[Rfam]
RNA sequence: AUAAAUGGAUCACAGGUUAAGUUCACCGCAUCCUGCGGCGACACCUGUGUGACCUGCGUCGUGCAGG
Numbered sequence: 001a002u003a004a005a006u007g008g009a010u011c012a013c014a015g016g017u018u019a020a021g022u023u024c025a026c027c028g029c030a031u032c033c034u035g036c037g038g039c040g041a042c043a044c045c046u047g048u049g050u051g052a053c054c055u056g057c058g059u060c061g062u063g064c065a066g067g
Stems, first nucleotide, its partner, number of pairs: 011049007026038004053067005
Shown here is a 67-nucleotide RNA sequence from Bacillus subtilis, a member of the family "Bacillaceae-1 RNA". By type it is a small RNA. The source organism's lineage runs through Bacteria, Bacillati, Bacillota, Bacillus and Bacillus subtilis subsp. subtilis.